[Rfam]
This 133-nucleotide RNA from Moschus moschiferus belongs to the Rfam family "Small nucleolar RNA SNORA70". The family's consensus secondary structure was predicted with PFOLD. For this family Rfam cites "Pseudouridine in RNA: what, where, how, and why" (Charette and Gray, IUBMB Life, 2000). NCBI's taxonomy places the organism under Eukaryota, Metazoa, Gnathostomata, Euteleostomi, Moschus. snoRNA U70 seems to be exclusive to mammals and is a member of the H/ACA class of snoRNA which contain H (ANANNA) and ACA box motifs. H/ACA box snoRNAs are involved in the conversion of uridines to pseudouridines (5-ribosyluracil) a constituent of structural RNAs (transfer, ribosomal, small nuclear, and small nucleolar).
RNA sequence: UUGCAGCCAGCUAAGCCAACUGUGCUCUUUUCCUUUUGGGGGCCCAGUAUGCAAUGGCCUAACAGUAGCCUCCUCAGUGUUGUAUGCAGCCUAUUGCCUGUAUCGGUUUCCUUAUGGGACUUUGGCAACAAGC
Numbered sequence: 001u002u003g004c005a006g007c008c009a010g011c012u013a014a015g016c017c018a019a020c021u022g023u024g025c026u027c028u029u030u031u032c033c034u035u036u037u038g039g040g041g042g043c044c045c046a047g048u049a050u051g052c053a054a055u056g057g058c059c060u061a062a063c064a065g066u067a068g069c070c071u072c073c074u075c076a077g078u079g080u081u082g083u084a085u086g087c088a089g090c091c092u093a094u095u096g097c098c099u100g101u102a103u104c105g106g107u108u109u110c111c112u113u114a115u116g117g118g119a120c121u122u123u124g125g126c127a128a129c130a131a132g133c
Base pairs, nucleotide, nucleotide: 002053003052004051005050019048020047021046022045025042026041027040028039076121077120078119088108089107090106091105